[Rfam]
RNA sequence: CUGACGAUACCAAUGACAGGUUUUAUAACCUGUGGGGAUUCACCUGUGUAAACAGGCGGCUGUACUGAGUACAUCACCGUGCCCCAUAUACCUCAACACUGAUUCGCUUUGGUGCACAGGUAUCGUUCA
Dot-bracket structure: .((((((((((.....((((((....)))))).((((.....(((((....)))))(((.(((((...)))))...)))..)))).................................))))))).)))
RNA: EFASI RNA
Organism: Zophobihabitans entericus